[Rfam]
RNA sequence: CUAUAUAAAAGGCAAAAUUGUUGAAAAGCAAUGACGCAAAGCCAAGGGCCUAAGGAAAACUAAGGUAGCCGGUUACUAUA
Numbered sequence: 001c002u003a004u005a006u007a008a009a010a011g012g013c014a015a016a017a018u019u020g021u022u023g024a025a026a027a028g029c030a031a032u033g034a035c036g037c038a039a040a041g042c043c044a045a046g047g048g049c050c051u052a053a054g055g056a057a058a059a060c061u062a063a064g065g066u067a068g069c070c071g072g073u074u075a076c077u078a079u080a
Base pairs, nucleotide, nucleotide: 012037013036017032018031019030020029021028022027040074041073042072043071046070047069048066049065050064055060

This 80-nucleotide RNA sequence from Aquibacillus halophilus belongs to the Rfam family "c-di-GMP-I riboswitch aptamer". It scores 71 bits against the family's covariance model. Rfam describes the family as follows. GEMM was predicted in a large-scale screen for bacterial structured RNA regulatory elements. The organism belongs to Aquibacillus, within Bacteria.